[Rfam]
RNA sequence: AAUCAUCAUAGAACCGUCUAAAGAGUACACUUCUAUGCAUAGAAGCGUACUCUUUAGACGGUUUUAUGAUGGCC
Numbered sequence: 001a002a003u004c005a006u007c008a009u010a011g012a013a014c015c016g017u018c019u020a021a022a023g024a025g026u027a028c029a030c031u032u033c034u035a036u037g038c039a040u041a042g043a044a045g046c047g048u049a050c051u052c053u054u055u056a057g058a059c060g061g062u063u064u065u066a067u068g069a070u071g072g073c074c
Stems, first nucleotide, its partner, number of pairs: 004071007012063017030045006
Dot-bracket structure: ...(((((((.(((((((((((((((((.((((((....)))))).))))))))))))))))).)))))))...
mir-5984 microRNA precursor family: a 74-nucleotide RNA from Haemonchus contortus. The organism belongs to Haemonchus, within Eukaryota. Rfam links the family to the GO terms RISC complex and miRNA-mediated post-transcriptional gene silencing.